SAH (S-adenosyl-L-homocysteine) riboswitch aptamer: a 69-nucleotide RNA sequence from Silvimonas terrae.
The organism belongs to Silvimonas, within Bacteria.

[Rfam]
RNA sequence: UUCCGGGGAGCGCUGCGAGGCUAAAUCCCAUCUGCCCCAGGCCCGGAGUCUCAACGGCGCUCACCUGAU
Dot-bracket structure: ((((((............(((..(......)..)))......)))))).....................
The base pairs follow the family's consensus structure, which is taken from published work. The match comes from Rfam's covariance-model search (52 bits).